The record is a 56-nucleotide RNA from Neorhizobium sp. SOG26, which matches "terC RNA" in Rfam. A search with the family's covariance model found it, with a score of 56 bits. By type it is a cis-regulatory element.

[Rfam]
RNA sequence: CACCAGGACCGGGCCCCUCUGGCAGUUCACCUGAACUGUGAUGUCGGACUGGAUGU
Numbered sequence: 001c002a003c004c005a006g007g008a009c010c011g012g013g014c015c016c017c018u019c020u021g022g023c024a025g026u027u028c029a030c031c032u033g034a035a036c037u038g039u040g041a042u043g044u045c046g047g048a049c050u051g052g053a054u055g056u
Base pairs, nucleotide, nucleotide: 006050007049009047010046011045012044022039023038024037025036026035027034028033
Dot-bracket structure: .....((.((((.........(((((((....)))))))....)))).))......